The record is a 104-nucleotide sequence from Echinicola pacifica, which matches "SAM riboswitch aptamer (S box leader)" in Rfam.
RNA sequence: GAUUUAUACCGAAUAGGGGAGAGAACAGGCUCAUAGAUCCUAUAGCAACCUAUCCAAAGAAAAGGUGCUAAAUCCUGCCUAAAUCAUUUAAGGAACUAUAAAUU
Numbered sequence: 001g002a003u004u005u006a007u008a009c010c011g012a013a014u015a016g017g018g019g020a021g022a023g024a025a026c027a028g029g030c031u032c033a034u035a036g037a038u039c040c041u042a043u044a045g046c047a048a049c050c051u052a053u054c055c056a057a058a059g060a061a062a063a064g065g066u067g068c069u070a071a072a073u074c075c076u077g078c079c080u081a082a083a084u085c086a087u088u089u090a091a092g093g094a095a096c097u098a099u100a101a102a103u104u
Base pairs, nucleotide, nucleotide: 001104002103003102004101005100006099007098008097013043014042015041016040017039021032022031023030026077027076028075029074044069045068046067047066049065050064051062053060054059078093079092080091082089083088
Taxonomically the source falls in Echinicola (Bacteria, Pseudomonadati, Cytophagia, Cyclobacteriaceae).